[Rfam]
RNA sequence: UAUGAUAUGAUGUUUCUACCCCUCACAAGUACAAGUAGAAUGCAUGUCAAUGAGGGGUAGAAACAUCAUAUCGUGUGC
Numbered sequence: 001u002a003u004g005a006u007a008u009g010a011u012g013u014u015u016c017u018a019c020c021c022c023u024c025a026c027a028a029g030u031a032c033a034a035g036u037a038g039a040a041u042g043c044a045u046g047u048c049a050a051u052g053a054g055g056g057g058u059a060g061a062a063a064c065a066u067c068a069u070a071u072c073g074u075g076u077g078c
Base pairs, nucleotide, nucleotide: 004072005071006070007069008068009067010066011065012064013063014062015061017059018058019057020056021055022054023053024052025051029048031047032046033045
Rfam assigns this 78-nucleotide RNA sequence from Oryza barthii to the family "MIR5148 microRNA precursor family". The family's consensus secondary structure was predicted with RNAalifold. Rfam links the family to the GO terms miRNA-mediated post-transcriptional gene silencing and RISC complex. NCBI's taxonomy places the organism under Eukaryota, Streptophyta, Embryophyta, Oryzinae, Oryza.